[Rfam]
RNA sequence: CACGAGUAUUUUAUAAUUAAGAAGCAACUGCCUCUUCUACAGAUUGUGUAUUAAUUU
Numbered sequence: 001c002a003c004g005a006g007u008a009u010u011u012u013a014u015a016a017u018u019a020a021g022a023a024g025c026a027a028c029u030g031c032c033u034c035u036u037c038u039a040c041a042g043a044u045u046g047u048g049u050a051u052u053a054a055u056u057u
Base pairs, nucleotide, nucleotide: 019036020035021034022033024031025030

Overview: The record is a 57-nucleotide RNA sequence from Juglans regia, which matches "Plastid-rps18 3UTR RNA" in Rfam. For this family Rfam cites "Retrograde signaling in plants: A critical review focusing on the GUN pathway and beyond" (Richter et al., Plant Commun, 2023). A search with the family's covariance model found it, with a score of 63 bits. Plastid rps18 is a non-coding RNA (ncRNA) present in plastids. It was identified as a short stem-loop motif in the 3 prime untranslate region (3UTR) of rps18 gene. Rfam classes the family as a cis-regulatory element.